[Rfam]
RNA: Pseudomonas sRNA P18
RNA sequence: GGCGGCGUGCUGCUCAGCCCUUUUCUGAUCUACGUGUUGAUGGCUCUGGUGCUUACCGGUUUGUUGCGCUUUGUCGUGCAAGCAACGCCAUUGGGGCGCUGGAUCUGGCAUGAAGCGCUGUUCGACACAGCGCUG
Number, nucleotide and partner (000 for none) at each position: 001g000002g067003c066004g065005g064006c063007g062008u000009g060010c059011u058012g052013c051014u049015c048016a047017g046018c000019c043020c042021u000022u040023u039024u000025c000026u000027g000028a000029u000030c000031u000032a000033c000034g000035u000036g000037u000038u000039g023040a022041u000042g020043g019044c000045u000046c017047u016048g015049g014050u000051g013052c012053u000054u000055a000056c000057c000058g011059g010060u009061u000062u007063g006064u005065u004066g003067c002068g133069c132070u000071u000072u000073g000074u000075c000076g000077u095078g000079c093080a092081a091082g000083c000084a000085a000086c000087g000088c000089c000090a000091u081092u080093g079094g000095g077096g000097c000098g131099c130100u129101g128102g000103a000104u125105c124106u000107g000108g121109c120110a119111u000112g000113a000114a000115g000116c000117g000118c000119u110120g109121u108122u000123c000124g105125a104126c000127a000128c101129a100130g099131c098132g069133c068134u000135g000